[Rfam]
RNA: mir-11 microRNA precursor family
RNA sequence: GUGCCGCGCGAGAACUCCGGCUGUGACCUGUGUGCCCCGUGUUGAACUUCACAUCACAGUCUGAGUUCUUGCUUGG
Numbered sequence: 001g002u003g004c005c006g007c008g009c010g011a012g013a014a015c016u017c018c019g020g021c022u023g024u025g026a027c028c029u030g031u032g033u034g035c036c037c038c039g040u041g042u043u044g045a046a047c048u049u050c051a052c053a054u055c056a057c058a059g060u061c062u063g064a065g066u067u068c069u070u071g072c073u074u075g076g
Stems, first nucleotide, its partner, number of pairs: 004076003009071009021059006030052003